[Rfam]
RNA sequence: UGCCUUUUGUGUUGCCCAUUCAUUUUUGUCACUAAUGACUGCGGUGUCAAAAAAGGCGUAAAGAAACCCCCUCCACAGCAUCCCUCGGCACUGGGGGCGAGUCUCCUCUGCCAUUCGGCUGUGGAAGGAACAGUU
Numbered sequence: 001u002g003c004c005u006u007u008u009g010u011g012u013u014g015c016c017c018a019u020u021c022a023u024u025u026u027u028g029u030c031a032c033u034a035a036u037g038a039c040u041g042c043g044g045u046g047u048c049a050a051a052a053a054a055g056g057c058g059u060a061a062a063g064a065a066a067c068c069c070c071c072u073c074c075a076c077a078g079c080a081u082c083c084c085u086c087g088g089c090a091c092u093g094g095g096g097g098c099g100a101g102u103c104u105c106c107u108c109u110g111c112c113a114u115u116c117g118g119c120u121g122u123g124g125a126a127g128g129a130a131c132a133g134u135u
Stems, first nucleotide, its partner, number of pairs: 002057006010049002013046004017041002020038005070128003074123006084117001088112001089110002094105002
Source information:
The family of this 135-nucleotide RNA from Alligator sinensis is "Small nucleolar RNA SNORA13". Its Rfam clan is "SNORA13 clan". The match comes from Rfam's covariance-model search (83 bits). Rfam links the family to the GO terms nucleolus and RNA processing. ACA13 is a member of the H/ACA class of snoRNA that guide the sites of modification of uridines to pseudouridines. By type it is an H/ACA-box small nucleolar RNA.